[Rfam]
RNA sequence: GGCGAUAAACGGACGAUGUAAUAAGCUCAUUGGACCCGGGGGCGGUACCCGGCGCCUCCACCACAGCUCAGCUGGUAAUGCUGCGUUGUGGCGGGGGCGAAACAGGAUCGACAAGAGUGUAAAGAUCGAACUUUUGCCCGGCAUUGUACCACCGUUAUCGGGCUAACCUAGUAGUUGCAAACGACAACUAUGCGGAAGCACGUCUCGCCGCUUAA
Numbered sequence: 001g002g003c004g005a006u007a008a009a010c011g012g013a014c015g016a017u018g019u020a021a022u023a024a025g026c027u028c029a030u031u032g033g034a035c036c037c038g039g040g041g042g043c044g045g046u047a048c049c050c051g052g053c054g055c056c057u058c059c060a061c062c063a064c065a066g067c068u069c070a071g072c073u074g075g076u077a078a079u080g081c082u083g084c085g086u087u088g089u090g091g092c093g094g095g096g097g098c099g100a101a102a103c104a105g106g107a108u109c110g111a112c113a114a115g116a117g118u119g120u121a122a123a124g125a126u127c128g129a130a131c132u133u134u135u136g137c138c139c140g141g142c143a144u145u146g147u148a149c150c151a152c153c154g155u156u157a158u159c160g161g162g163c164u165a166a167c168c169u170a171g172u173a174g175u176u177g178c179a180a181a182c183g184a185c186a187a188c189u190a191u192g193c194g195g196a197a198g199c200a201c202g203u204c205u206c207g208c209c210g211c212u213u214a215a
Base pairs, nucleotide, nucleotide: 001138002137003136004135005134014128015127016126017125026117027116028115030114031113032112036052037051038050039049040048053099054098055097056096057095058094059093139154140153141152
Dot-bracket structure: (((((........((((........(((.(((...(((((.......)))))(((((((.................................)))))))............)))))).......)))).....)))))(((..........))).............................................................
A member of the RNA family "permuted transfer-messenger RNA" from Phyllobacterium endophyticum, 215 nucleotides long. A search with the family's covariance model found it, with a score of 145 bits. On this family, see Williams and Bartel, RNA 1996: "Phylogenetic analysis of tmRNA secondary structure". About the family: Bacterial tmRNA, also known as 10Sa RNA or SsrA, is named for its dual tRNA and mRNA-like properties. Its role is to liberate the mRNA from a stalled ribosome. It is annotated as a non-coding RNA gene. The base pairs follow the family's consensus structure, which is taken from published work. Rfam links the family to the GO term RNA catabolic process.